[Rfam]
RNA sequence: CCUCGCUUACAGUUGCUACCUGCUUAGAGAUAAGCAGGGCACUCUGUUAGGACCGCCUUCGUUUAAGGAGGAGGAAGGAGAGGGCGA
Numbered sequence: 001c002c003u004c005g006c007u008u009a010c011a012g013u014u015g016c017u018a019c020c021u022g023c024u025u026a027g028a029g030a031u032a033a034g035c036a037g038g039g040c041a042c043u044c045u046g047u048u049a050g051g052a053c054c055g056c057c058u059u060c061g062u063u064u065a066a067g068g069a070g071g072a073g074g075a076a077g078g079a080g081a082g083g084g085c086g087a
Stems, first nucleotide, its partner, number of pairs: 001083004006050002009047004016039002020037007053074002056071005